[Rfam]
The family of this 367-nucleotide sequence from Chelativorans petroleitrophicus is "Alphaproteobacteria transfer-messenger RNA". The base pairs follow the family's consensus structure, which is taken from published work. NCBI's taxonomy places the organism under Bacteria, Pseudomonadota, Alphaproteobacteria, Phyllobacteriaceae, Chelativorans. From the family's description: Bacterial tmRNA, also known as 10Sa RNA or SsrA, is named for its dual tRNA and mRNA-like properties. Its role is to liberate the mRNA from a stalled ribosome. To accomplish this part of the tmRNA is used as a reading frame that ends in a translation stop signal.
RNA sequence: GGGGUUUUCAUUUCAACCGGUUCUCACUAUAUCUGAUGGCGUCAGCUUCGGGCUGACUAUGGCGAUAAACGGCCGAUGCAAUAAGCCAAUCGGACCCGGGGGCAGUGCCCGGCGCCUCCACCAGAAACUGCCGGCCAGCCAGGAGGGGCGGCUUCUGAUGGGGGCGAAACAGGAUCGACGAUGGUGUAAAGAUCGGACCUUCGCCCGGCAUGGUACCACCGUUAUCGGACCGAACCUAAUAGUUGCCAACGACAACUAUGCGGAAGCCCGUCUCGCUGCGUAAGCGGCGCGACAGCUUCACUUCAAGUCUCAGGCCGUCGCAGGCCUGAGCGGGGUCCGGAGGCACCUGGCAACAGAAGCCUCCACU
Dot-bracket structure: ........................................(((((.......)))))...(((((.....(.(((((........(((.(((...(((((.......)))))(((((((........................................)))))))............)))))).......))))).)..)))))[[[..(((..((.]]].....)).)))....................................................................................................[[[[..((((((]]]]..........))))))...
Numbered sequence: 001g002g003g004g005u006u007u008u009c010a011u012u013u014c015a016a017c018c019g020g021u022u023c024u025c026a027c028u029a030u031a032u033c034u035g036a037u038g039g040c041g042u043c044a045g046c047u048u049c050g051g052g053c054u055g056a057c058u059a060u061g062g063c064g065a066u067a068a069a070c071g072g073c074c075g076a077u078g079c080a081a082u083a084a085g086c087c088a089a090u091c092g093g094a095c096c097c098g099g100g101g102g103c104a105g106u107g108c109c110c111g112g113c114g115c116c117u118c119c120a121c122c123a124g125a126a127a128c129u130g131c132c133g134g135c136c137a138g139c140c141a142g143g144a145g146g147g148g149c150g151g152c153u154u155c156u157g158a159u160g161g162g163g164g165c166g167a168a169a170c171a172g173g174a175u176c177g178a179c180g181a182u183g184g185u186g187u188a189a190a191g192a193u194c195g196g197a198c199c200u201u202c203g204c205c206c207g208g209c210a211u212g213g214u215a216c217c218a219c220c221g222u223u224a225u226c227g228g229a230c231c232g233a234a235c236c237u238a239a240u241a242g243u244u245g246c247c248a249a250c251g252a253c254a255a256c257u258a259u260g261c262g263g264a265a266g267c268c269c270g271u272c273u274c275g276c277u278g279c280g281u282a283a284g285c286g287g288c289g290c291g292a293c294a295g296c297u298u299c300a301c302u303u304c305a306a307g308u309c310u311c312a313g314g315c316c317g318u319c320g321c322a323g324g325c326c327u328g329a330g331c332g333g334g335g336u337c338c339g340g341a342g343g344c345a346c347c348u349g350g351c352a353a354c355a356g357a358a359g360c361c362u363c364c365a366c367u
Stems, first nucleotide, its partner, number of pairs: 041057005061205005071198001073196005086184003090181003096112005113166007206221003211232003216228002333348004339364006